[Rfam]
Nucleotides: 075
Stems, first nucleotide, its partner, number of pairs: 014026001016024002033069001038065002043060002047056003
Number, partner (000 for none) and nucleotide at each position: 001000c002000u003000u004000g005000a006000g007000g008000g009000a010000g011000c012000c013000g014026a015000g016024c017023c018000a019000c020000a021000g022000g023017g024016g025000g026014u027000g028000g029000u030000c031000g032000g033069u034000g035000g036000g037000g038065c039064g040000g041000u042000u043060c044059u045000g046000g047056c048055c049054g050000u051000a052000g053000g054049u055048g056047g057000c058000g059044a060043g061000g062000a063000g064039u065038g066000c067000c068000u069033g070000g071000g072000c073000u074000u075000c

A member of the RNA family "ASpks TB sRNA" from Streptomyces cinnamoneus, 75 nucleotides long.
It is annotated as an antisense RNA.
It scores 62 bits against the family's covariance model.
The source organism's lineage runs through Bacteria, Bacillati, Actinomycetota, Kitasatosporales and Streptomyces.